[Rfam]
RNA sequence: UUCGGGCCUGCAGCGGUUCCUUCCGCCGCCCUCUGCAUGCCGUCGCCAACGCACCCUCUUCGAAUAAGUACAGCGAUCCUGUCGCCAUUCCUUGCGGCGCGGC
Numbered sequence: 001u002u003c004g005g006g007c008c009u010g011c012a013g014c015g016g017u018u019c020c021u022u023c024c025g026c027c028g029c030c031c032u033c034u035g036c037a038u039g040c041c042g043u044c045g046c047c048a049a050c051g052c053a054c055c056c057u058c059u060u061c062g063a064a065u066a067a068g069u070a071c072a073g074c075g076a077u078c079c080u081g082u083c084g085c086c087a088u089u090c091c092u093u094g095c096g097g098c099g100c101g102g103c
Stems, first nucleotide, its partner, number of pairs: 010029002013026003039103004044099004073085005